[Rfam]
RNA sequence: ACCUGUAACGGGUCAACCUAAAGGAGCCCACCCAUCAUCCACUCCCUCCUCUCUGCGCGUACCCCCGCAGGAGCCCAGUUCGAGUCCUGCGGUGUCCACAUUCCACUCAUGCAGGUAACUCAUGAUGCUGGAGGGACUUAAGCGAUGAGCGCCAUUGGACGAGGGAAGGAAUUCUGCAGUCGGGCGUUCACCGUGGGACGGCGGUGCUGGAUUACUCCCGUGGGGGUUGAGGGGCGUGGAGUGGGCUGGGGGGGCGACUUUUUUU
Numbered sequence: 001a002c003c004u005g006u007a008a009c010g011g012g013u014c015a016a017c018c019u020a021a022a023g024g025a026g027c028c029c030a031c032c033c034a035u036c037a038u039c040c041a042c043u044c045c046c047u048c049c050u051c052u053c054u055g056c057g058c059g060u061a062c063c064c065c066c067g068c069a070g071g072a073g074c075c076c077a078g079u080u081c082g083a084g085u086c087c088u089g090c091g092g093u094g095u096c097c098a099c100a101u102u103c104c105a106c107u108c109a110u111g112c113a114g115g116u117a118a119c120u121c122a123u124g125a126u127g128c129u130g131g132a133g134g135g136a137c138u139u140a141a142g143c144g145a146u147g148a149g150c151g152c153c154a155u156u157g158g159a160c161g162a163g164g165g166a167a168g169g170a171a172u173u174c175u176g177c178a179g180u181c182g183g184g185c186g187u188u189c190a191c192c193g194u195g196g197g198a199c200g201g202c203g204g205u206g207c208u209g210g211a212u213u214a215c216u217c218c219c220g221u222g223g224g225g226g227u228u229g230a231g232g233g234g235c236g237u238g239g240a241g242u243g244g245g246c247u248g249g250g251g252g253g254g255c256g257a258c259u260u261u262u263u264u265u
Base pairs, nucleotide, nucleotide: 001013002012003011020261021260022259023258026255027254028253029252031250032249033248039244040243041242042241043240044239045238047236049234050233051232052231062226063225064224065223066222067221068220070218071217072216073215075210076209077208078207079206080204081203082202084199085198086197087196088195089194090193091192092191094137096135097134101132102131103130104127105126107125108124109123110122111121113120114119138142146190147189148188149187150186151185152184156183158181159180160179165174166173167172
Fungal signal recognition particle RNA: a 265-nucleotide RNA from Ampelomyces quisqualis. The family's RNA type in Rfam is non-coding RNA gene. Its family is annotated with signal recognition particle, endoplasmic reticulum targeting, SRP-dependent cotranslational protein targeting to membrane, signal sequence recognition and signal recognition particle, plasma membrane targeting in the Gene Ontology. The source organism's lineage runs through Eukaryota, Opisthokonta, Ascomycota, leotiomyceta and Ampelomyces.